[Rfam]
RNA sequence: GUUGCUCCCUGGUAGGCGCGGCUUCACGCAAACACAGGUUACUGCUCCGGCCCGUCGAAAGACGCUCAGGGGCGCACAGCAGGCUCGGCUUAAGGGCUUUGCCAAAGUAACUGCGGCGCUGCCGCUACGUUGUGUGACAGCUUAAGCUCAACCGGAGGGGGAGUGUU
Numbered sequence: 001g002u003u004g005c006u007c008c009c010u011g012g013u014a015g016g017c018g019c020g021g022c023u024u025c026a027c028g029c030a031a032a033c034a035c036a037g038g039u040u041a042c043u044g045c046u047c048c049g050g051c052c053c054g055u056c057g058a059a060a061g062a063c064g065c066u067c068a069g070g071g072g073c074g075c076a077c078a079g080c081a082g083g084c085u086c087g088g089c090u091u092a093a094g095g096g097c098u099u100u101g102c103c104a105a106a107g108u109a110a111c112u113g114c115g116g117c118g119c120u121g122c123c124g125c126u127a128c129g130u131u132g133u134g135u136g137a138c139a140g141c142u143u144a145a146g147c148u149c150a151a152c153c154g155g156a157g158g159g160g161g162a163g164u165g166u167u
Stems, first nucleotide, its partner, number of pairs: 005163006011153002013093001015148003020142003025136007038111005044073005053064004079102004084096003113125003
RNA: M-box riboswitch aptamer (ykoK leader)
Organism: Roseiflexus castenholzii